[Rfam]
RNA: SAM riboswitch aptamer (S box leader)
Organism: Effusibacillus dendaii
RNA sequence: CUCUUAUCUAGAGUGGCGGAGGGACUGGCCCGAUGAAGCCCGGCAACCGGAAUCGUACGGAACGGAUCGUUUCGAUUCUUGGUGCCAAUUCCUGCAGAAUCAUUGGUAUUCUGGCAGAUAAGAG
Numbered sequence: 001c002u003c004u005u006a007u008c009u010a011g012a013g014u015g016g017c018g019g020a021g022g023g024a025c026u027g028g029c030c031c032g033a034u035g036a037a038g039c040c041c042g043g044c045a046a047c048c049g050g051a052a053u054c055g056u057a058c059g060g061a062a063c064g065g066a067u068c069g070u071u072u073c074g075a076u077u078c079u080u081g082g083u084g085c086c087a088a089u090u091c092c093u094g095c096a097g098a099a100u101c102a103u104u105g106g107u108a109u110u111c112u113g114g115c116a117g118a119u120a121a122g123a124g
Stems, first nucleotide, its partner, number of pairs: 001124008013041001015040003021031003025094001027092002042086004047082002049078003090116001095113006